[Rfam]
RNA: NoRC associated RNA, pRNA
RNA sequence: CGAUGGUGGCGAUUUUGGGGACAGACGCCCGUGUCGCGGGUUCCCUGGGCCGGCGGCGUGAUCGGUGACUCGACCUCCUGCCUCCUGGGG
Numbered sequence: 001c002g003a004u005g006g007u008g009g010c011g012a013u014u015u016u017g018g019g020g021a022c023a024g025a026c027g028c029c030c031g032u033g034u035c036g037c038g039g040g041u042u043c044c045c046u047g048g049g050c051c052g053g054c055g056g057c058g059u060g061a062u063c064g065g066u067g068a069c070u071c072g073a074c075c076u077c078c079u080g081c082c083u084c085c086u087g088g089g090g
Base pairs, nucleotide, nucleotide: 004087006085008084009083011082018079019078020077021076027069029067030065033062034061035060036059037058038057